[Rfam]
RNA sequence: CGUAUCAUUGUGCCUCGCCCAAGCGCGGGGCGAUAAGUCCGAAAAGGGAUGAUAUGAC
Numbered sequence: 001c002g003u004a005u006c007a008u009u010g011u012g013c014c015u016c017g018c019c020c021a022a023g024c025g026c027g028g029g030g031c032g033a034u035a036a037g038u039c040c041g042a043a044a045a046g047g048g049a050u051g052a053u054a055u056g057a058c
Stems, first nucleotide, its partner, number of pairs: 001056009011032008039047002
This 58-nucleotide sequence from Bifidobacterium oedipodis belongs to the Rfam family "SAM-VI (S-adenosyl methionine) riboswitch aptamer".